Rfam assigns this 94-nucleotide sequence from Camphora micrantha to the family "Small nucleolar RNA Z162". It is annotated as a C/D-box small nucleolar RNA. Rfam 15.1 lists 146 matches to the family in 75 species. The literature on the family includes a 2003 paper in Nucleic Acids Res by Chen et al., "The high diversity of snoRNAs in plants: identification and comparative study of 120 snoRNA genes from Oryza sativa".
RNA sequence: AUCAGCACAAUGAGGAUAUUUUAUUUCAUAUUGAGACGAGAUUAGAAGAUCCGUGAGUGAAAAUCUUGAAAGUCCUUUUCAUUCUGAGUGCUGA
Number, nucleotide and partner (000 for none) at each position: 001a000002u000003c000004a092005g091006c090007a089008c088009a000010a082011u081012g080013a079014g078015g000016a000017u000018a000019u000020u000021u000022u000023a000024u000025u000026u000027c000028a000029u000030a000031u000032u000033g000034a000035g000036a000037c000038g000039a000040g000041a050042u049043u048044a000045g000046a000047a000048g043049a042050u041051c000052c000053g000054u000055g000056a000057g000058u000059g000060a000061a000062a000063a000064u000065c000066u000067u000068g000069a000070a000071a000072g000073u000074c000075c000076u000077u000078u014079u013080c012081a011082u010083u000084c000085u000086g000087a000088g008089u007090g006091c005092u004093g000094a000